The family of this 68-nucleotide sequence from Mycobacterium heidelbergense is "ASdes TB sRNA". For this family Rfam cites "Identification of small RNAs in Mycobacterium tuberculosis" (Arnvig and Young, Mol Microbiol, 2009). The base pairs follow the family's consensus structure, which is taken from published work. It scores 76 bits against the family's covariance model.

RNA sequence: AGCUCGACCGGGUCGACGGCGCGGGUGACCACCAGGUAGUCGCGCAGCGCCGUGCUGUGCCUGUUCUC
Number, nucleotide and partner (000 for none) at each position: 001a000002g000003c000004u063005c000006g061007a000008c059009c000010g000011g030012g029013u028014c000015g000016a026017c025018g000019g000020c000021g000022c000023g000024g000025g017026u016027g000028a013029c012030c011031a000032c000033c000034a000035g056036g055037u054038a053039g000040u052041c000042g050043c049044g048045c000046a000047g000048c044049g043050c042051c000052g040053u038054g037055c036056u035057g000058u000059g008060c000061c006062u000063g004064u000065u000066c000067u000068c000

Annotation:
The family's RNA type in Rfam is small RNA.